[Rfam]
RNA sequence: UUGAAGAUAAGGGGAGAGACUACGAAUGUAGCGCCGAAGGAGCAAACUUAGCAGUGAAUCUCUCAGGCAAAAGAACUCUUAUUGGACG
Numbered sequence: 001u002u003g004a005a006g007a008u009a010a011g012g013g014g015a016g017a018g019a020c021u022a023c024g025a026a027u028g029u030a031g032c033g034c035c036g037a038a039g040g041a042g043c044a045a046a047c048u049u050a051g052c053a054g055u056g057a058a059u060c061u062c063u064c065a066g067g068c069a070a071a072a073g074a075a076c077u078c079u080u081a082u083u084g085g086a087c088g
Stems, first nucleotide, its partner, number of pairs: 006083008020031004033068003036064002040062003046055002
Rfam assigns this 88-nucleotide sequence from Peribacillus muralis to the family "Glycine riboswitch aptamer". The base pairs follow the family's consensus structure. The source organism's lineage runs through Bacteria, Bacillati, Bacilli, Caryophanales and Peribacillus.